Annotation
The family of this 80-nucleotide RNA sequence from Albula glossodonta is "Small nucleolar RNA SNORD83". Taxonomically the source falls in Albula (Eukaryota, Chordata, Craniata, Vertebrata). The family's consensus secondary structure was predicted with PFOLD.

RNA sequence: GCCACAAGAUGAUCUGACAUAGAUAUGCAGUAGCACUCUGUGCAAAGAUGACCCUUAUCUAACACCCAUGUCUGAUGGCC
Numbered sequence: 001g002c003c004a005c006a007a008g009a010u011g012a013u014c015u016g017a018c019a020u021a022g023a024u025a026u027g028c029a030g031u032a033g034c035a036c037u038c039u040g041u042g043c044a045a046a047g048a049u050g051a052c053c054c055u056u057a058u059c060u061a062a063c064a065c066c067c068a069u070g071u072c073u074g075a076u077g078g079c080c
Stems, first nucleotide, its partner, number of pairs: 001079004033043004
Dot-bracket structure: ((((............................((((...))))................................)))).
It scores 63 bits against the family's covariance model.